[Rfam]
RNA sequence: AACAAGCUGCGUUGUACGUAUUGAUAAUAAAGUUUUAACCUUUAAGCUGUAAUAGGGAGUUUUAUAUAGAAACAGGAAUGACAAGCCUCUGUCUAUAGGACAAGGAGGACAUGCAAGAAUGUUUCUGCGAACACCCACUUUGAGGAGUGGUGGUUUAAAACUUUCUUAUAUUCAUGUACGGCAAAGGCGGCUGUACC
Numbered sequence: 001a002a003c004a005a006g007c008u009g010c011g012u013u014g015u016a017c018g019u020a021u022u023g024a025u026a027a028u029a030a031a032g033u034u035u036u037a038a039c040c041u042u043u044a045a046g047c048u049g050u051a052a053u054a055g056g057g058a059g060u061u062u063u064a065u066a067u068a069g070a071a072a073c074a075g076g077a078a079u080g081a082c083a084a085g086c087c088u089c090u091g092u093c094u095a096u097a098g099g100a101c102a103a104g105g106a107g108g109a110c111a112u113g114c115a116a117g118a119a120u121g122u123u124u125c126u127g128c129g130a131a132c133a134c135c136c137a138c139u140u141u142g143a144g145g146a147g148u149g150g151u152g153g154u155u156u157a158a159a160a161c162u163u164u165c166u167u168a169u170a171u172u173c174a175u176g177u178a179c180g181g182c183a184a185a186g187g188c189g190g191c192u193g194u195a196c197c
Stems, first nucleotide, its partner, number of pairs: 005192006012184004017180003031162004036157003039153002055136003059132004068126007080114001086108005